The family of this 84-nucleotide RNA sequence from Massilia sp. CF038 is "tRNA". The family's consensus secondary structure is taken from published work. Its family is annotated with triplet codon-amino acid adaptor activity in the Gene Ontology.

[Rfam]
RNA sequence: GCCGACGUGGUGAAAUUGGUAGACACGCUAUCUUGAGGGGGUAGUGGGAGAAAUCCUGUGCGAGUUCGAGUCUCGCCGUCGGCA
Numbered sequence: 001g002c003c004g005a006c007g008u009g010g011u012g013a014a015a016u017u018g019g020u021a022g023a024c025a026c027g028c029u030a031u032c033u034u035g036a037g038g039g040g041g042u043a044g045u046g047g048g049a050g051a052a053a054u055c056c057u058g059u060g061c062g063a064g065u066u067c068g069a070g071u072c073u074c075g076c077c078g079u080c081g082g083c084a
Base pairs, nucleotide, nucleotide: 001083002082003081004080005079006078007077010026011025012024028044029043030042031041032040060076061075062074063073064072